[Rfam]
RNA sequence: GCUUGGGCGAUGUACCUCUUUAUAUGCCCAUAUGAACAGAAAUUAUGGAAUGUAAAGAAGUAUGUAUCUCAGGC
Numbered sequence: 001g002c003u004u005g006g007g008c009g010a011u012g013u014a015c016c017u018c019u020u021u022a023u024a025u026g027c028c029c030a031u032a033u034g035a036a037c038a039g040a041a042a043u044u045a046u047g048g049a050a051u052g053u054a055a056a057g058a059a060g061u062a063u064g065u066a067u068c069u070c071a072g073g074c
Base pairs, nucleotide, nucleotide: 007068010065011064012063013062014061015060017058018057019056020055021054022053023052024051025050028048029047030046031045032044
RNA: mir-1 microRNA precursor family
Organism: Labrus bergylta